[Rfam]
RNA sequence: CCCGGGAAUGGCCUCUCCUGAUGACCCUUCCCUCCCUGAUGGCUCCGACGUGAUGGUGGCCAAGGAGAAGCCUCUGAGAAGUUGUCUGAGGAGGCCGUUCCCCG
Number, nucleotide and partner (000 for none) at each position: 001c000002c000003c000004g000005g000006g000007a099008a098009u097010g096011g095012c094013c093014u092015c091016u000017c000018c000019u000020g000021a000022u000023g000024a000025c000026c000027c000028u000029u000030c000031c000032c000033u000034c000035c000036c000037u000038g000039a000040u000041g000042g000043c000044u000045c000046c000047g000048a000049c000050g000051u000052g000053a000054u000055g000056g000057u000058g000059g000060c000061c000062a000063a000064g000065g000066a000067g000068a000069a000070g000071c000072c000073u000074c000075u000076g000077a000078g000079a000080a000081g000082u000083u000084g000085u000086c000087u000088g000089a000090g000091g015092a014093g013094g012095c011096c010097g009098u008099u007100c000101c000102c000103c000104g000
Rfam assigns this 104-nucleotide RNA sequence from Aythya fuligula to the family "Small nucleolar RNA SNORD125". Pairs were carried over by alignment from the consensus structure, which was predicted with WAR. Its Rfam clan is "SNORD61 clan". Rfam classes the family as a C/D-box small nucleolar RNA. Lineage of the source: Eukaryota > Teleostomi > Sauropsida > Galloanserae > Aythya. For this family Rfam cites "snoSeeker: an advanced computational package for screening of guide and orphan snoRNA genes in the human genome" (Yang et al., Nucleic Acids Res, 2006). A search with the family's covariance model found it, with a score of 57 bits.